[Rfam]
Notes: Rfam assigns this 73-nucleotide RNA sequence from Muricoccus pecuniae to the family "Makes More Granules Regulator RNA (mmgR)". The pairing is the family consensus, mapped onto this sequence.

RNA sequence: GUUUGCUGUUUUCUUGGACGUUUCCUCCCUAAACUCGGCGGUGCCCUCGGGCACCGCCUUCCUUUUCCGGAGG
Numbered sequence: 001g002u003u004u005g006c007u008g009u010u011u012u013c014u015u016g017g018a019c020g021u022u023u024c025c026u027c028c029c030u031a032a033a034c035u036c037g038g039c040g041g042u043g044c045c046c047u048c049g050g051g052c053a054c055c056g057c058c059u060u061c062c063u064u065u066u067c068c069g070g071a072g073g
Base pairs, nucleotide, nucleotide: 008019009018010017011016037058038057039056040055041054042053043052044051045050